[Rfam]
RNA sequence: CAGGCAUGCUGGAGCCCCACAGCGGCGCCUGGGAUCUUGAACCCGACACCGUAACCAACAUCGGGGCUUAU
Numbered sequence: 001c002a003g004g005c006a007u008g009c010u011g012g013a014g015c016c017c018c019a020c021a022g023c024g025g026c027g028c029c030u031g032g033g034a035u036c037u038u039g040a041a042c043c044c045g046a047c048a049c050c051g052u053a054a055c056c057a058a059c060a061u062c063g064g065g066g067c068u069u070a071u
Base pairs, nucleotide, nucleotide: 012069013068014067015066016065017064018063023051024050025049030045031044032043033042035040

The record is a 71-nucleotide sequence, which matches "ybhL leader" in Rfam. Its family is annotated with regulation of gene expression in the Gene Ontology. This family is a putative regulatory RNA structure that is found upstream of an uncharacterized membrane protein in alpha-proteobacteria. By type it is a cis-regulatory leader. A reference for the family is Corbino et al. (2005), "Evidence for a second class of S-adenosylmethionine riboswitches and other regulatory RNA motifs in alpha-proteobacteria", Genome Biol.